[Rfam]
RNA sequence: CCCUCGGACUAUUAUAUCAAACCAAAGUAGCUUUAUAGCAAAAUGGGAUAGGUUGAACAGGGAA
Numbered sequence: 001c002c003c004u005c006g007g008a009c010u011a012u013u014a015u016a017u018c019a020a021a022c023c024a025a026a027g028u029a030g031c032u033u034u035a036u037a038g039c040a041a042a043a044u045g046g047g048a049u050a051g052g053u054u055g056a057a058c059a060g061g062g063a064a
Base pairs, nucleotide, nucleotide: 001062002061003060004059009051010050011049012048013047022046023045024044030039031038032037
This 64-nucleotide RNA sequence belongs to the Rfam family "RAGATH-18 RNA".
It is annotated as a small RNA.
The family's consensus secondary structure is taken from published work.